[Rfam]
RNA: Small nucleolar RNA SNORA23
Organism: Chloebia gouldiae
RNA sequence: GCAGCACUGUGUGCACAGUUUCCUGUCUGUGUCUGGUGGUAGGGUCUGUGUGUGUUUUGCACAUAGACUGUACUGCUCACACAAAACCUGGGGCCAAAGAUGAACCUGAGAUCAUAGUACUGGUUUAGUGAUAUCUGCCCACUGACCAGCCUCCACACUCUCAAACAUCU
Numbered sequence: 001g002c003a004g005c006a007c008u009g010u011g012u013g014c015a016c017a018g019u020u021u022c023c024u025g026u027c028u029g030u031g032u033c034u035g036g037u038g039g040u041a042g043g044g045u046c047u048g049u050g051u052g053u054g055u056u057u058u059g060c061a062c063a064u065a066g067a068c069u070g071u072a073c074u075g076c077u078c079a080c081a082c083a084a085a086a087c088c089u090g091g092g093g094c095c096a097a098a099g100a101u102g103a104a105c106c107u108g109a110g111a112u113c114a115u116a117g118u119a120c121u122g123g124u125u126u127a128g129u130g131a132u133a134u135c136u137g138c139c140c141a142c143u144g145a146c147c148a149g150c151c152u153c154c155a156c157a158c159u160c161u162c163a164a165a166c167a168u169c170u
Stems, first nucleotide, its partner, number of pairs: 014090002030083003034079003037075005044068005051061003107163005120149006127143004